[Rfam]
RNA sequence: GGAGAAGCAAACUGAUGAGCAUUACUGGCUGGAGCUCCAAAGAGGCAUGUGUGUGUGUGUGUGUGUAUCCUUGUCUGUGCAUGCACACGUGUGUGUGGGAGUACGAAUGCGUGUGACUGGUUGUAGGGAACUAGUUAUGUGCCUGCUUUUGGACCAUGACAGUCAAACUGAUAAGAUCUGAUUGCUUC
Numbered sequence: 001g002g003a004g005a006a007g008c009a010a011a012c013u014g015a016u017g018a019g020c021a022u023u024a025c026u027g028g029c030u031g032g033a034g035c036u037c038c039a040a041a042g043a044g045g046c047a048u049g050u051g052u053g054u055g056u057g058u059g060u061g062u063g064u065g066u067a068u069c070c071u072u073g074u075c076u077g078u079g080c081a082u083g084c085a086c087a088c089g090u091g092u093g094u095g096u097g098g099g100a101g102u103a104c105g106a107a108u109g110c111g112u113g114u115g116a117c118u119g120g121u122u123g124u125a126g127g128g129a130a131c132u133a134g135u136u137a138u139g140u141g142c143c144u145g146c147u148u149u150u151g152g153a154c155c156a157u158g159a160c161a162g163u164c165a166a167a168c169u170g171a172u173a174a175g176a177u178c179u180g181a182u183u184g185c186u187u188c
Stems, first nucleotide, its partner, number of pairs: 004188007014178003026165006036099004041094001043092001045090002048087009061075001065070001101114004117134006136158004141154001143152002